Rfam assigns this 105-nucleotide sequence from Cohnella sp. OV330 to the family "Guanidine-I riboswitch aptamer".

RNA sequence: CGAAUUGUUUUCUAGGGUUCCGCGGCAGCUUUCAUGCCGGUCUGGUCCGAGAGAAGACGCACGGCAUAGCGGCCGUGUCCACGGAGGGAUAAAAGCCCGGGAGGA
Number, nucleotide and partner (000 for none) at each position: 001c000002g000003a000004a000005u000006u000007g058008u057009u056010u055011u054012c053013u000014a000015g048016g047017g000018u000019u000020c045021c044022g042023c039024g038025g037026c036027a035028g000029c000030u000031u000032u000033c000034a000035u027036g026037c025038c024039g023040g000041u000042c022043u000044g021045g020046u000047c016048c015049g000050a000051g000052a000053g012054a011055a010056g009057a008058c007059g078060c077061a076062c075063g074064g073065c072066a000067u000068a000069g000070c000071g000072g065073c064074c063075g062076u061077g060078u059079c000080c100081a000082c103083g000084g000085a000086g098087g097088g096089a000090u000091a000092a000093a000094a000095g000096c088097c087098c086099g000100g080101g000102a000103g082104g000105a000

Annotation: Rfam describes the family as follows. This family represents a conserved RNA structure found upstream of the ykkC and yxkD genes in Bacillus subtilis and related genes in other bacteria. The function of this family is unclear although it has been suggested that it may function to switch on efflux pumps and detoxification systems in response to harmful environmental molecules. Gene Ontology term of the family: regulation of gene expression. The source organism's lineage runs through Bacteria, Bacillota, Caryophanales, Paenibacillaceae and Cohnella.